Saccharopolyspora sRNA 350: a 508-nucleotide RNA sequence from Kitasatospora viridis. The family has 2 seed sequences and 1,170 matches in Rfam 15.1. By type it is an antisense RNA.

RNA sequence: UUCACGGUGUACUCCCAGAGCGCGUCGGACUGCCGCACCGCCUCGUCGCCGAGGUGGUCGCCGUCGGCCAGGUGGCCGAGCACGGCGGUCUCGCCGUACUUGCCGGUGCCGAUCUGGUUGAUCUUCCCGUGGGCGAUCAGGAAGACCUCGUCGAUCGGCUGGCCGGCCUCGACCAGCACCUCGCCGGCCGCCACCUCGCGCUGGGUGAACCGGUUGGCCAGCUCCUCCAGCACGGCGUCGUCCUCCAGGCCGCGCAGCACCGGGACCUCGCGCAGCGACGGCGGCACCACCUUGACCUCGGCGCCGGUCUUGACGAAGCUCACCCGGCCGCGGCCGACGGCGUAGGAGAGCCGGCGGUUGACCCGGUAGGUACCACCGGAGACCUGCACCCAGGGGAGCGAGCGGAGCAGCCAGCGCGAGCUGAUGCCCUGCAUCUGCGGCUCGGACUUGGUGGUCGUGGCCAGAUUGCGGGCGGCGGAGGUGCUCAGGCUGAGCUGCGACUUGGUCU
Numbered sequence: 001u002u003c004a005c006g007g008u009g010u011a012c013u014c015c016c017a018g019a020g021c022g023c024g025u026c027g028g029a030c031u032g033c034c035g036c037a038c039c040g041c042c043u044c045g046u047c048g049c050c051g052a053g054g055u056g057g058u059c060g061c062c063g064u065c066g067g068c069c070a071g072g073u074g075g076c077c078g079a080g081c082a083c084g085g086c087g088g089u090c091u092c093g094c095c096g097u098a099c100u101u102g103c104c105g106g107u108g109c110c111g112a113u114c115u116g117g118u119u120g121a122u123c124u125u126c127c128c129g130u131g132g133g134c135g136a137u138c139a140g141g142a143a144g145a146c147c148u149c150g151u152c153g154a155u156c157g158g159c160u161g162g163c164c165g166g167c168c169u170c171g172a173c174c175a176g177c178a179c180c181u182c183g184c185c186g187g188c189c190g191c192c193a194c195c196u197c198g199c200g201c202u203g204g205g206u207g208a209a210c211c212g213g214u215u216g217g218c219c220a221g222c223u224c225c226u227c228c229a230g231c232a233c234g235g236c237g238u239c240g241u242c243c244u245c246c247a248g249g250c251c252g253c254g255c256a257g258c259a260c261c262g263g264g265a266c267c268u269c270g271c272g273c274a275g276c277g278a279c280g281g282c283g284g285c286a287c288c289a290c291c292u293u294g295a296c297c298u299c300g301g302c303g304c305c306g307g308u309c310u311u312g313a314c315g316a317a318g319c320u321c322a323c324c325c326g327g328c329c330g331c332g333g334c335c336g337a338c339g340g341c342g343u344a345g346g347a348g349a350g351c352c353g354g355c356g357g358u359u360g361a362c363c364c365g366g367u368a369g370g371u372a373c374c375a376c377c378g379g380a381g382a383c384c385u386g387c388a389c390c391c392a393g394g395g396g397a398g399c400g401a402g403c404g405g406a407g408c409a410g411c412c413a414g415c416g417c418g419a420g421c422u423g424a425u426g427c428c429c430u431g432c433a434u435c436u437g438c439g440g441c442u443c444g445g446a447c448u449u450g451g452u453g454g455u456c457g458u459g460g461c462c463a464g465a466u467u468g469c470g471g472g473c474g475g476c477g478g479a480g481g482u483g484c485u486c487a488g489g490c491u492g493a494g495c496u497g498c499g500a501c502u503u504g505g506u507c508u
Stems, first nucleotide, its partner, number of pairs: 006390006015381001018328001022324001025322001027320002031316001036312002040308003045305001047303006054233002058229001060227001063224001065111004075103001077102004082097005117222004122217002126213002129210002131206001134203002140197001143196002150191001153189001155187005160178002165174002234296001236294002240290002244286001245284001249282004257276002261270002329342003351379004356374002361371003391431005397425001399423002403418002407415001437476002440473001442471003446467001448464005477507002480502003484499001486497003